[Rfam]
RNA: terC RNA
Organism: Paracoccus sphaerophysae
RNA sequence: GGUCGAGACCGGGCCCCGCUGACGAUCCCUGCGGAUCGUGAUGUCGGUCGCAUCA
Numbered sequence: 001g002g003u004c005g006a007g008a009c010c011g012g013g014c015c016c017c018g019c020u021g022a023c024g025a026u027c028c029c030u031g032c033g034g035a036u037c038g039u040g041a042u043g044u045c046g047g048u049c050g051c052a053u054c055a
Stems, first nucleotide, its partner, number of pairs: 007049006022039007